[Rfam]
Rfam assigns this 79-nucleotide sequence from Erwinia sorbitola to the family "sroB RNA".
Taxonomically the source falls in Erwinia (Bacteria, Pseudomonadota, Gammaproteobacteria, Enterobacterales).
RNA sequence: AGCUUAACCGCUGAGACGAUAACAAAAAUCAUAAAUAUGUCCUUAUUGACGGGCCGAUAGAGAUAUCGGCCUUUUUUUU
Numbered sequence: 001a002g003c004u005u006a007a008c009c010g011c012u013g014a015g016a017c018g019a020u021a022a023c024a025a026a027a028a029u030c031a032u033a034a035a036u037a038u039g040u041c042c043u044u045a046u047u048g049a050c051g052g053g054c055c056g057a058u059a060g061a062g063a064u065a066u067c068g069g070c071c072u073u074u075u076u077u078u079u
Stems, first nucleotide, its partner, number of pairs: 004015002007012001025029001051072009
On this family, see Vogel et al., Nucleic Acids Res 2003: "RNomics in Escherichia coli detects new sRNA species and indicates parallel transcriptional output in bacteria". A search with the family's covariance model found it, with a score of 55 bits. By type it is a small RNA.